[Rfam]
RNA sequence: GGUUGCAAGUUCAGGGCCAUAGCAAAAGCAUUCAUGGUGUGGCCCUGUCAGAUUCCAACAAGUCCGUGAAUUCCGCU
Numbered sequence: 001g002g003u004u005g006c007a008a009g010u011u012c013a014g015g016g017c018c019a020u021a022g023c024a025a026a027a028g029c030a031u032u033c034a035u036g037g038u039g040u041g042g043c044c045c046u047g048u049c050a051g052a053u054u055c056c057a058a059c060a061a062g063u064c065c066g067u068g069a070a071u072u073c074c075g076c077u
Stems, first nucleotide, its partner, number of pairs: 014045005021077003026072002028040003049066001051064004

The family of this 77-nucleotide sequence from Alligator mississippiensis is "Mammalian CPEB3 ribozyme".
A search with the family's covariance model found it, with a score of 47 bits.
From the family's description: The mammalian CPEB3 ribozyme is a self cleaving RNA located in the second intron of the CPEB3 gene which belongs to a family of genes regulating messenger RNA polyadenylation.
Rfam links the family to the GO term RNA nuclease activity.
Taxonomically the source falls in Alligator (Eukaryota, Deuterostomia, Vertebrata, Archelosauria).